Rfam assigns this 116-nucleotide RNA sequence from Ciceribacter sp. L1K22 to the family "TPP riboswitch aptamer (THI element)". The source organism's lineage runs through Bacteria, Pseudomonadota, Hyphomicrobiales, Rhizobiaceae and Ciceribacter. Rfam's curators write: Vitamin B(1) in its active form thiamin pyrophosphate (TPP) is an essential coenzyme that is synthesised by coupling of pyrimidine and thiazole moieties in bacteria. The previously detected thiamin-regulatory element, thi box was extended, resulting in a new, highly conserved RNA secondary structure, the THI element, which is widely distributed in eubacteria and also occurs in some archaea. Its family is annotated with thiamine pyrophosphate binding in the Gene Ontology.
RNA sequence: CUUGCUCUAACGGGGUGCCCCUCGUCCUUUUCGGACGAUUGGCUGAGAGGCUUCAUCGCCAACCCGCGGAACCUGAUCCGGUUAACACCGGCGGAGGGAUUAGACGCGUAUCGCAA
Number, nucleotide and partner (000 for none) at each position: 001c000002u000003u000004g000005c000006u104007c103008u102009a101010a100011c066012g065013g064014g063015g000016u000017g043018c042019c041020c000021c000022u000023c000024g000025u000026c000027c000028u000029u000030u000031u000032c000033g000034g000035a000036c000037g000038a000039u000040u000041g019042g018043c017044u000045g000046a000047g000048a000049g000050g059051c058052u000053u000054c000055a000056u000057c000058g051059c050060c000061a000062a000063c014064c013065c012066g011067c000068g000069g000070a000071a000072c097073c096074u095075g000076a000077u000078c091079c090080g089081g088082u000083u000084a000085a000086c000087a000088c081089c080090g079091g078092c000093g000094g000095a074096g073097g072098g000099a000100u010101u009102a008103g007104a006105c000106g000107c000108g000109u000110a000111u000112c000113g000114c000115a000116a000